[Rfam]
Listeria sRNA rli30: a 116-nucleotide sequence from Listeria monocytogenes. It is one of the family's seed sequences. The source organism's lineage runs through Bacteria, Bacillati, Bacillota, Listeria and Listeria monocytogenes.
RNA sequence: UUGAUAUACUCAGCAUAGGCUCCGGGAUGUCUUGCUCCGAUUACUGUUAGCUUCCGACAGCGGGCGAAUUCGCCUUUUUUACAGUAUUCACACUCUCCACAAUAGAGUGCUGGGCA
Numbered sequence: 001u002u003g004a005u006a007u008a009c010u011c012a013g014c015a016u017a018g019g020c021u022c023c024g025g026g027a028u029g030u031c032u033u034g035c036u037c038c039g040a041u042u043a044c045u046g047u048u049a050g051c052u053u054c055c056g057a058c059a060g061c062g063g064g065c066g067a068a069u070u071c072g073c074c075u076u077u078u079u080u081a082c083a084g085u086a087u088u089c090a091c092a093c094u095c096u097c098c099a100c101a102a103u104a105g106a107g108u109g110c111u112g113g114g115c116a
Stems, first nucleotide, its partner, number of pairs: 003031005009026003012021003033116005039089002042086006050061003062075005091109006